A member of the RNA family "Editing element of GABA-3 exon 9" from Muntiacus reevesi, 54 nucleotides long. It scores 68 bits against the family's covariance model. The family's RNA type in Rfam is cis-regulatory element.

[Rfam]
RNA sequence: AAAGUGUCCUAUGCGACUGCCAUGGAUUGGUUCAUAGCCGUCUGUUUCGCUUUU
Numbered sequence: 001a002a003a004g005u006g007u008c009c010u011a012u013g014c015g016a017c018u019g020c021c022a023u024g025g026a027u028u029g030g031u032u033c034a035u036a037g038c039c040g041u042c043u044g045u046u047u048c049g050c051u052u053u054u
Stems, first nucleotide, its partner, number of pairs: 001054003006051001008049001011046001013045002015042003019038002022035005
Dot-bracket structure: (((..(.(..(.(((((.((.(((((....))))).)).))).)))..).))))